[Rfam]
The record is a 38-nucleotide RNA sequence from Desulfosporosinus fructosivorans, which matches "Selenocysteine insertion sequence 4" in Rfam. Gene Ontology term of the family: selenocysteine incorporation. The organism belongs to Desulfosporosinus, within Bacteria.
Nucleotides: 038
Stems, first nucleotide, its partner, number of pairs: 005031002013027006
Number, partner (000 for none) and nucleotide at each position: 001000g002000g003000g004000a005031c006030u007000u008000g009000c010000a011000c012000u013027c014026g015025u016024u017023g018022c019000g020000g021000c022018g023017c024016a025015a026014c027013g028000a029000u030006a031005g032000u033000a034000a035000a036000a037000g038000a